[Rfam]
RNA sequence: AAAAUAUAUGGUGAUGGUGCCCACCAUAGCUUUACGCUUAAACGCCUAACAAUAAUAAGGCUAAUGGCUCCUGUCUAAUU
Numbered sequence: 001a002a003a004a005u006a007u008a009u010g011g012u013g014a015u016g017g018u019g020c021c022c023a024c025c026a027u028a029g030c031u032u033u034a035c036g037c038u039u040a041a042a043c044g045c046c047u048a049a050c051a052a053u054a055a056u057a058a059g060g061c062u063a064a065u066g067g068c069u070c071c072u073g074u075c076u077a078a079u080u
Stems, first nucleotide, its partner, number of pairs: 010025004016071002019068003044061004
This 80-nucleotide RNA from Candidatus Syntrophocurvum alkaliphilum belongs to the Rfam family "Fluoride riboswitch aptamer (crcB RNA motif)". On this family, see Ren et al., Nature 2012: "Fluoride ion encapsulation by Mg2+ ions and phosphates in a fluoride riboswitch". Pairs were carried over by alignment from the consensus structure, which is taken from published work. NCBI's taxonomy places the organism under Bacteria, Bacillota, Clostridia, Syntrophomonadaceae, Candidatus Syntrophocurvum. Its family is annotated with positive regulation of gene expression and response to fluoride in the Gene Ontology.